[Rfam]
RNA sequence: CCGUGCUAGGUGGGGAGGUAGCGGUGCCCUAUACUCGCAAUCCGCUAUAGCGAGACGGAAUCCCCGUCUGAGGUGUAUAGCUUUAAGGUCUGCCAUAAGGAAUUGGUGUUGAUGUUUGGGUCCUGCGCAACGGGAACCCGUGAAUUCUGUCAGGUCCGGAAGGAAGCAGCAGUAAGCGGUCUUUCUCGUGUGCCGCAGAGCAACCUGAACUGAGCCAUGAACUUAUGUAACGCUUGGGGCUAUAGCAUCGACGACGGGUGCACGG
Numbered sequence: 001c002c003g004u005g006c007u008a009g010g011u012g013g014g015g016a017g018g019u020a021g022c023g024g025u026g027c028c029c030u031a032u033a034c035u036c037g038c039a040a041u042c043c044g045c046u047a048u049a050g051c052g053a054g055a056c057g058g059a060a061u062c063c064c065c066g067u068c069u070g071a072g073g074u075g076u077a078u079a080g081c082u083u084u085a086a087g088g089u090c091u092g093c094c095a096u097a098a099g100g101a102a103u104u105g106g107u108g109u110u111g112a113u114g115u116u117u118g119g120g121u122c123c124u125g126c127g128c129a130a131c132g133g134g135a136a137c138c139c140g141u142g143a144a145u146u147c148u149g150u151c152a153g154g155u156c157c158g159g160a161a162g163g164a165a166g167c168a169g170c171a172g173u174a175a176g177c178g179g180u181c182u183u184u185c186u187c188g189u190g191u192g193c194c195g196c197a198g199a200g201c202a203a204c205c206u207g208a209a210c211u212g213a214g215c216c217a218u219g220a221a222c223u224u225a226u227g228u229a230a231c232g233c234u235u236g237g238g239g240c241u242a243u244a245g246c247a248u249c250g251a252c253g254a255c256g257g258g259u260g261c262a263c264g265g
Base pairs, nucleotide, nucleotide: 001265002264003263004262005261006260010056011055012030013029014028015027017025019023034054035053036052037051038050063258064257065256066255067254068253072249073248074247075246076245078242079241080240081239082238083237084236085235086234087233091229092228095226096225097224098223099222103219105216106215107214114210115209116208117207118206119205120204121203123198124197125196126195127194128190129189131188132187133186134185135184138179139178140177141176147172148171149170150169155164156163157162
RNA: Bacterial large signal recognition particle RNA
Organism: Paraliobacillus sp. PM-2